[Rfam]
RNA sequence: AGCUUCUGCUAGGUGAUGCUUCGUAUAAUCCCGUUGAUAAGGUGCGGGAGUCUCUACCUGAAACCGAGAAUUUCAGAUUACGAAGAGUUAAGUGCACGGC
Numbered sequence: 001a002g003c004u005u006c007u008g009c010u011a012g013g014u015g016a017u018g019c020u021u022c023g024u025a026u027a028a029u030c031c032c033g034u035u036g037a038u039a040a041g042g043u044g045c046g047g048g049a050g051u052c053u054c055u056a057c058c059u060g061a062a063a064c065c066g067a068g069a070a071u072u073u074c075a076g077a078u079u080a081c082g083a084a085g086a087g088u089u090a091a092g093u094g095c096a097c098g099g100c
Stems, first nucleotide, its partner, number of pairs: 019085007029049006058076006
The family of this 100-nucleotide sequence from Vibrio galatheae is "Purine riboswitch aptamer". The match comes from Rfam's covariance-model search (66 bits). The organism belongs to Vibrio, within Bacteria. About the family: Riboswitches are metabolite binding domains within certain messenger RNAs that serve as precision sensors for their corresponding targets. Rfam 15.1 lists 4,097 matches to the family in 1,411 species.